[Rfam]
RNA sequence: AAGUAGUGUGACAUGCCCGUUUGGGUUAUACUCUGAUGUAUUUAUUUAAUAUUUAAUUUCUUUAGGAUAACGGGGUGUUACACAUU
Numbered sequence: 001a002a003g004u005a006g007u008g009u010g011a012c013a014u015g016c017c018c019g020u021u022u023g024g025g026u027u028a029u030a031c032u033c034u035g036a037u038g039u040a041u042u043u044a045u046u047u048a049a050u051a052u053u054u055a056a057u058u059u060c061u062u063u064a065g066g067a068u069a070a071c072g073g074g075g076u077g078u079u080a081c082a083c084a085u086u
Stems, first nucleotide, its partner, number of pairs: 003086001006083009016074006
This 86-nucleotide RNA from Medicago truncatula belongs to the Rfam family "MIR2617 microRNA precursor family". Lineage of the source: Eukaryota > Gunneridae > Pentapetalae > rosids > Medicago.